[Rfam]
This 487-nucleotide part of an RNA from Pomacea canaliculata belongs to the Rfam family "Eukaryotic large subunit ribosomal RNA". The family is grouped with related families in Rfam's "LSU clan". The match comes from Rfam's covariance-model search (3027 bits). Taxonomically the source falls in Pomacea (Eukaryota, Lophotrochozoa, Architaenioglossa, Ampullariidae).
RNA sequence: GGUAGUAGCAAAUAUUCAAACGAGAACUUUGAAGACUGAAGUGGAGAAGGGUUCCAUGUGAACAGCAGUUGAACAUGGUCAGUCGGUCCUAAGAGAUAGGAGAAGUCCGUUCUGAAGCCGGGGCACACAUGGUCUCGAAAUUAUGUUUCAAACAUGUGCCCAGCAUGCGAUCGAAAGGGAAUCGGGUUAAUAUUCCCGAACCUGGACACGGAGAUUGGUCCUCACGGGCCACGUGCGGUAACGCAAACGAAGUGGGAGACGUCGGCGUCAACCCCGGGAAGAGUUCUCUUUUCUUUGUAAGGGACCCACUCCCUGGAAUCGGCUUGCCCGGAGAUAGGGACACGGGGUUCCCGUAAAGCACCGCGGCUCUUGCGGUGUCCGGUGCGUUGGCGUCGGCCCUUGAAAAUCCCACGGAGACGGUGUGAUUCUCGUGCCAGGCCGUACCCAUAUCCGCAGCAGGUCUCCAAGGUGCACAGCCUCUAGUCGA
Number, nucleotide and partner (000 for none) at each position: 001g000002g000003u000004a000005g000006u000007a000008g000009c000010a000011a000012a000013u000014a000015u033016u032017c031018a030019a029020a028021c000022g000023a000024g000025a000026a000027c000028u020029u019030u018031g017032a016033a015034g485035a484036c483037u482038g000039a000040a000041g000042u000043g465044g464045a463046g462047a000048a000049g445050g444051g000052u000053u000054c078055c077056a076057u075058g074059u073060g000061a000062a000063c071064a070065g000066c000067a000068g000069u000070u064071g063072a000073a059074c058075a057076u056077g055078g054079u000080c000081a000082g000083u000084c441085g440086g439087u000088c178089c177090u000091a000092a000093g172094a171095g111096a110097u109098a000099g108100g107101a106102g000103a000104a000105g000106u101107c100108c099109g097110u096111u095112c000113u000114g000115a000116a000117g000118c163119c000120g161121g160122g159123g000124c000125a000126c000127a000128c000129a000130u000131g000132g000133u000134c000135u000136c000137g000138a000139a000140a000141u000142u000143a000144u000145g000146u000147u000148u000149c000150a000151a000152a000153c000154a000155u000156g000157u000158g000159c122160c121161c120162a000163g118164c000165a000166u000167g000168c000169g000170a000171u094172c093173g000174a000175a000176a000177g089178g088179g000180a000181a000182u199183c198184g197185g196186g195187u000188u000189a000190a000191u000192a000193u000194u000195c186196c185197c184198g183199a182200a000201c000202c437203u436204g435205g434206a000207c000208a000209c000210g000211g000212a000213g000214a000215u000216u000217g000218g000219u000220c000221c000222u000223c433224a432225c431226g430227g429228g000229c424230c000231a000232c000233g000234u245235g244236c243237g242238g000239u000240a000241a000242c237243g236244c235245a234246a000247a000248c000249g000250a000251a000252g412253u411254g410255g409256g408257a407258g000259a000260c000261g397262u396263c395264g394265g000266c392267g391268u390269c389270a388271a387272c386273c000274c382275c381276g380277g000278g296279a295280a294281g293282a292283g000284u000285u000286c000287u000288c000289u000290u000291u000292u282293c281294u280295u279296u278297g000298u000299a000300a000301g352302g351303g350304a349305c000306c000307c000308a000309c000310u340311c339312c338313c337314u336315g335316g000317a000318a000319u331320c330321g329322g328323c000324u000325u000326g000327c000328c322329c321330g320331g319332a000333g000334a000335u315336a314337g313338g312339g311340a310341c000342a000343c000344g000345g000346g000347g000348u000349u304350c303351c302352c301353g000354u000355a000356a000357a000358g000359c377360a376361c375362c374363g373364c372365g371366g000367c000368u000369c000370u000371u365372g364373c363374g362375g361376u360377g359378u000379c000380c276381g275382g274383u000384g000385c000386g272387u271388u270389g269390g268391c267392g266393u000394c264395g263396g262397c261398c000399c000400u000401u000402g000403a000404a000405a000406a000407u257408c256409c255410c254411a253412c252413g000414g000415a000416g000417a000418c000419g000420g000421u000422g000423u000424g229425a000426u000427u000428c000429u227430c226431g225432u224433g223434c205435c204436a203437g202438g000439c086440c085441g084442u000443a000444c050445c049446c000447a000448u000449a000450u000451c460452c459453g000454c000455a000456g000457c000458a000459g452460g451461u000462c046463u045464c044465c043466a000467a479468g478469g477470u476471g000472c000473a000474c000475a000476g470477c469478c468479u467480c000481u000482a037483g036484u035485c034486g000487a000